[Rfam]
RNA sequence: UGCCUACUGGUUCGAAACCCUCCCAGUAUAAAAAACUAGGCUGAU
Numbered sequence: 001u002g003c004c005u006a007c008u009g010g011u012u013c014g015a016a017a018c019c020c021u022c023c024c025a026g027u028a029u030a031a032a033a034a035a036c037u038a039g040g041c042u043g044a045u
Stems, first nucleotide, its partner, number of pairs: 006027005016037001
Dot-bracket structure: .....(((((.....[......))))).........]........

Record summary
This 45-nucleotide RNA sequence from Clostridiales bacterium KLE1615 belongs to the Rfam family "PreQ1 (pre queuosine) riboswitch aptamer". The literature on the family includes a 2004 paper in J Biol Chem by Reader et al., "Identification of four genes necessary for biosynthesis of the modified nucleoside queuosine". From the family's description: This family is a bacterial riboswitch that binds to the metabolite preQ1, an intermediate in the biosynthesis of the modified nucleoside queuosine from GTP. One example of this riboswitch is located in the leader of the Bacillus subtilis ykvJKLM (queCDEF) operon which encodes four genes necessary for queuosine production. PreQ1 binding to the riboswitch aptamer is thought to induce premature transcription termination within the leader to down-regulate expression of these genes. Taxonomically the source falls in Eubacteriales (Bacteria, Bacillati, Bacillota, Clostridia).